[Rfam]
Nucleotides: 114
Base pairs, nucleotide, nucleotide: 001114002113005110007108008107009106010105011104013102014101015100018097019096020095021094037077038076039075040074050062051061
Number, partner (000 for none) and nucleotide at each position: 001114g002113u003000u004000g005110g006000c007108u008107a009106u010105g011104g012000a013102g014101a015100u016000a017000u018097g019096u020095a021094c022000c023000c024000c025000g026000u027000g028000a029000c030000u031000a032000u033000c034000g035000g036000g037077g038076g039075u040074a041000a042000g043000a044000u045000c046000g047000u048000a049000g050062g051061c052000u053000c054000a055000c056000u057000g058000u059000g060000u061051g062050c063000a064000a065000u066000c067000g068000c069000c070000g071000g072000u073000g074040u075039g076038u077037u078000g079000a080000c081000c082000a083000u084000u085000g086000c087000a088000c089000u090000g091000c092000c093000g094021g095020u096019a097018c098000c099000g100015g101014u102013c103000a104011u105010u106009g107008u108007a109000u110005c111000a112000a113002a114001c